mir-55 microRNA precursor family: a 76-nucleotide sequence. Gene Ontology terms of the family: miRNA-mediated post-transcriptional gene silencing and RISC complex. A search with the family's covariance model found it, with a score of 64 bits. The base pairs follow the family's consensus structure, which was predicted with RNAalifold.

RNA sequence: CGGGGACUCGGCGGAUACCUAUCGGUUAUACUGGAUGUGUCAUGGAUAUACCCGUAUAAGUUUCCGCUGAGCCCCC
Numbered sequence: 001c002g003g004g005g006a007c008u009c010g011g012c013g014g015a016u017a018c019c020u021a022u023c024g025g026u027u028a029u030a031c032u033g034g035a036u037g038u039g040u041c042a043u044g045g046a047u048a049u050a051c052c053c054g055u056a057u058a059a060g061u062u063u064c065c066g067c068u069g070a071g072c073c074c075c076c
Stems, first nucleotide, its partner, number of pairs: 003074003007071009017061002024053002027050004031045003